[Rfam]
Record summary:
Rfam assigns this 382-nucleotide RNA sequence from Sphagnurus paluster to the family "Nuclear RNase P". It scores 71 bits against the family's covariance model. The organism belongs to Sphagnurus, within Eukaryota. A reference for the family is Frank and Pace (1998), "Ribonuclease P: unity and diversity in a tRNA processing ribozyme", Annu Rev Biochem. From the family's description: Ribonuclease P (RNase P) is a ubiquitous endoribonuclease, found in archaea, bacteria and eukarya as well as chloroplasts and mitochondria. Its best characterised activity is the generation of mature 5'-ends of tRNAs by cleaving the 5'-leader elements of precursor-tRNAs. By type it is a ribozyme.
RNA sequence: CCAGUCCAAAAGCCACGAUGCUCACCCCGCACCAGACAUCGCUUCGUAGCGCAUGUCUAUCUCCUCGUGAGCGGGCCAAGGUCUGAGUAUUCCAAUCUCCCUUGAUCGGCCCUCGCUGGGUCUGGCUGUAACACGCCGAACGACAUACCAGAUAUACGACGCGCUUCAUUCUCUGCCCUGAGAUCCUUCCUGGGGAGGGUAUAAUGGAGACGACGCCUUGGGAAAUGUCGUGGAGAUCGGGCGCGCGGCUCCGCCUGAUCAGGGAUCGAACCUACUUGGUAGUGCAGAUCCCGGGCCUAGGGCAGACUACGCGUCCUUCAGUUCACUUCGUGGCUCGCGGUUGAGAAACCGUGUAACUCGAUUCAGACUACUCUUGGACUGG
Numbered sequence: 001c002c003a004g005u006c007c008a009a010a011a012g013c014c015a016c017g018a019u020g021c022u023c024a025c026c027c028c029g030c031a032c033c034a035g036a037c038a039u040c041g042c043u044u045c046g047u048a049g050c051g052c053a054u055g056u057c058u059a060u061c062u063c064c065u066c067g068u069g070a071g072c073g074g075g076c077c078a079a080g081g082u083c084u085g086a087g088u089a090u091u092c093c094a095a096u097c098u099c100c101c102u103u104g105a106u107c108g109g110c111c112c113u114c115g116c117u118g119g120g121u122c123u124g125g126c127u128g129u130a131a132c133a134c135g136c137c138g139a140a141c142g143a144c145a146u147a148c149c150a151g152a153u154a155u156a157c158g159a160c161g162c163g164c165u166u167c168a169u170u171c172u173c174u175g176c177c178c179u180g181a182g183a184u185c186c187u188u189c190c191u192g193g194g195g196a197g198g199g200u201a202u203a204a205u206g207g208a209g210a211c212g213a214c215g216c217c218u219u220g221g222g223a224a225a226u227g228u229c230g231u232g233g234a235g236a237u238c239g240g241g242c243g244c245g246c247g248g249c250u251c252c253g254c255c256u257g258a259u260c261a262g263g264g265a266u267c268g269a270a271c272c273u274a275c276u277u278g279g280u281a282g283u284g285c286a287g288a289u290c291c292c293g294g295g296c297c298u299a300g301g302g303c304a305g306a307c308u309a310c311g312c313g314u315c316c317u318u319c320a321g322u323u324c325a326c327u328u329c330g331u332g333g334c335u336c337g338c339g340g341u342u343g344a345g346a347a348a349c350c351g352u353g354u355a356a357c358u359c360g361a362u363u364c365a366g367a368c369u370a371c372u373c374u375u376g377g378a379c380u381g382g
Base pairs, nucleotide, nucleotide: 001382002381003380004379007376008375009374012334013333014332015331016330017329018328020072021071022070023069024068034058035057036056037055038054039053083366084365085364086363087362090235091234092233093232108122109121110120111119112118123139125137127135128134140231141230142229143228144227145226146225161216162215336353337352338351339350340349341348
Dot-bracket structure: ((((..(((..(((((((.(((((.........((((((.............)))))).........)))))..........[[[[[..((((..............(((((.....)))))(.(.((.....)).).)(((((((..............((....................................................))........)))))))))))............................................................................................))))))).((((((......))))))........]]]]].......)))..))))